Background: This 58-nucleotide RNA sequence from Aerobium aerolatum belongs to the Rfam family "terC RNA". It scores 64 bits against the family's covariance model. It is annotated as a cis-regulatory element.
[Rfam]
RNA sequence: CACCCGGGCCGGGCCCCUCUGGCAGGCGAGGCGUCGCCUGUGAUGUCGGACCGAUCGA
Numbered sequence: 001c002a003c004c005c006g007g008g009c010c011g012g013g014c015c016c017c018u019c020u021g022g023c024a025g026g027c028g029a030g031g032c033g034u035c036g037c038c039u040g041u042g043a044u045g046u047c048g049g050a051c052c053g054a055u056c057g058a
Stems, first nucleotide, its partner, number of pairs: 006052002009049004022041008